[Rfam]
RNA sequence: CAUGUUGAUUGUACUUCAUCAGGUGCUUUGGUCGGUUCGGUUCCCAGGCAUCUGUUGGAGUACAGCUCAUGUG
Numbered sequence: 001c002a003u004g005u006u007g008a009u010u011g012u013a014c015u016u017c018a019u020c021a022g023g024u025g026c027u028u029u030g031g032u033c034g035g036u037u038c039g040g041u042u043c044c045c046a047g048g049c050a051u052c053u054g055u056u057g058g059a060g061u062a063c064a065g066c067u068c069a070u071g072u073g
Stems, first nucleotide, its partner, number of pairs: 001073004010064003014060005020054002023051005030045002